[Rfam]
RNA sequence: GGGGCUGCUGUAAACAUCCUUGACUGGAAGCUGGUGCUCACGAUGGGGCUUUCAGUCGGAUGUUUGCAGCAGCCGA
Numbered sequence: 001g002g003g004g005c006u007g008c009u010g011u012a013a014a015c016a017u018c019c020u021u022g023a024c025u026g027g028a029a030g031c032u033g034g035u036g037c038u039c040a041c042g043a044u045g046g047g048g049c050u051u052u053c054a055g056u057c058g059g060a061u062g063u064u065u066g067c068a069g070c071a072g073c074c075g076a
Base pairs, nucleotide, nucleotide: 003074004073005072006071008069009068010067011066012065013064014063015062016061017060018059019058023056024055025054026053027052028051029050030049031048032047